[Rfam]
RNA sequence: AAGAUAAGCGCACGCUAGCGUCGGUCUACCGAGCAGUGAUACCCGCUCGGCGGAAGAUCUUCCCUUUGUCGU
Numbered sequence: 001a002a003g004a005u006a007a008g009c010g011c012a013c014g015c016u017a018g019c020g021u022c023g024g025u026c027u028a029c030c031g032a033g034c035a036g037u038g039a040u041a042c043c044c045g046c047u048c049g050g051c052g053g054a055a056g057a058u059c060u061u062c063c064c065u066u067u068g069u070c071g072u
Stems, first nucleotide, its partner, number of pairs: 004069003010063001012061001020058003025054003029050006
Background: Rfam assigns this 72-nucleotide RNA from Bombyx mori to the family "mir-2774 microRNA precursor family". For this family Rfam cites "MicroRNAs of Bombyx mori identified by Solexa sequencing" (Liu et al., BMC Genomics, 2010). Gene Ontology terms of the family: miRNA-mediated post-transcriptional gene silencing and RISC complex.